This 87-nucleotide RNA from Atlantisia rogersi belongs to the Rfam family "Small nucleolar RNA SNORD100". On this family, see Huttenhofer et al., EMBO J 2001: "RNomics: an experimental approach that identifies 201 candidates for novel, small, non-messenger RNAs in mouse". The match comes from Rfam's covariance-model search (76 bits). Clan: SNORD100 clan.

RNA sequence: GCUGUACAAUGAUGAUAAUUUGGCUCCCUCUACUGAUCCUAGUGAGGAAAGCAGCCAUCCGUUACCCAAUACUUCUGACAGUACAGC
Numbered sequence: 001g002c003u004g005u006a007c008a009a010u011g012a013u014g015a016u017a018a019u020u021u022g023g024c025u026c027c028c029u030c031u032a033c034u035g036a037u038c039c040u041a042g043u044g045a046g047g048a049a050a051g052c053a054g055c056c057a058u059c060c061g062u063u064a065c066c067c068a069a070u071a072c073u074u075c076u077g078a079c080a081g082u083a084c085a086g087c
Stems, first nucleotide, its partner, number of pairs: 001087006
Dot-bracket structure: ((((((...........................................................................))))))